[Rfam]
RNA: Small nucleolar RNA SNORA84
Organism: Cephalopterus ornatus
RNA sequence: GCCCCGUGGUUCCUGGGCGCUGCUCUGCCUGUGCAGUGCCCCGGGGGUAGCAGUGGGCCGACAGUGACACUGUGGUUUUUGCGUGGAACCUGUCACCCGUGAGCAGCUUCCACAGCCCGGUCACAGUCACAGCC
Numbered sequence: 001g002c003c004c005c006g007u008g009g010u011u012c013c014u015g016g017g018c019g020c021u022g023c024u025c026u027g028c029c030u031g032u033g034c035a036g037u038g039c040c041c042c043g044g045g046g047g048u049a050g051c052a053g054u055g056g057g058c059c060g061a062c063a064g065u066g067a068c069a070c071u072g073u074g075g076u077u078u079u080u081g082c083g084u085g086g087a088a089c090c091u092g093u094c095a096c097c098c099g100u101g102a103g104c105a106g107c108u109u110c111c112a113c114a115g116c117c118c119g120g121u122c123a124c125a126g127u128c129a130c131a132g133c134c
Stems, first nucleotide, its partner, number of pairs: 001058004007049002010047008019037005070126001072124006081116002083113004088108001090106004